[Rfam]
RNA: tRNA
Organism: Calothrix sp. 336/3
RNA sequence: UACAUACUAGCUCAUUGGUAGAGCAUUUCUCUCAUAAAGAAACCGUAGUAGGUUCAAAUCCUACGUGUGAAC
Numbered sequence: 001u002a003c004a005u006a007c008u009a010g011c012u013c014a015u016u017g018g019u020a021g022a023g024c025a026u027u028u029c030u031c032u033c034a035u036a037a038a039g040a041a042a043c044c045g046u047a048g049u050a051g052g053u054u055c056a057a058a059u060c061c062u063a064c065g066u067g068u069g070a071a072c
Stems, first nucleotide, its partner, number of pairs: 001071001003069005010024004026042005048064005